About this RNA
This 81-nucleotide RNA sequence from Cotesia typhae belongs to the Rfam family "mir-981 microRNA precursor family". Rfam 15.1 lists 180 matches to the family in 170 species.

RNA sequence: CCGCAGACGUCCGGGUUUCGUGACAAGCGAGCCGUUACUUUAAUACGGGUUCGUUGUCGACGAAACCUGCACGAUCUGUAA
Numbered sequence: 001c002c003g004c005a006g007a008c009g010u011c012c013g014g015g016u017u018u019c020g021u022g023a024c025a026a027g028c029g030a031g032c033c034g035u036u037a038c039u040u041u042a043a044u045a046c047g048g049g050u051u052c053g054u055u056g057u058c059g060a061c062g063a064a065a066c067c068u069g070c071a072c073g074a075u076c077u078g079u080a081a
Stems, first nucleotide, its partner, number of pairs: 003079004012069009029052005

A search with the family's covariance model found it, with a score of 66 bits.
The organism belongs to Cotesia, within Eukaryota.